[Rfam]
RNA sequence: UACUACCAAACCCUAUCUCCACCUCCACAUGGUGAUCGCUGGGAGUUCUUUUUUCAUGAAAAACUGCGACGGAGAAGG
Numbered sequence: 001u002a003c004u005a006c007c008a009a010a011c012c013c014u015a016u017c018u019c020c021a022c023c024u025c026c027a028c029a030u031g032g033u034g035a036u037c038g039c040u041g042g043g044a045g046u047u048c049u050u051u052u053u054u055c056a057u058g059a060a061a062a063a064c065u066g067c068g069a070c071g072g073a074g075a076a077g078g
Base pairs, nucleotide, nucleotide: 012078013077014076016074018072019071021033022032023031044065045064046063047062049060050059051058
A member of the RNA family "drz-agam-1 ribozyme" from Hermetia illucens, 78 nucleotides long. The organism belongs to Hermetia, within Eukaryota. The literature on the family includes a 2009 paper in Science by Webb et al., "Widespread occurrence of self-cleaving ribozymes". A search with the family's covariance model found it, with a score of 37 bits. The base pairs follow the family's consensus structure, which is taken from published work.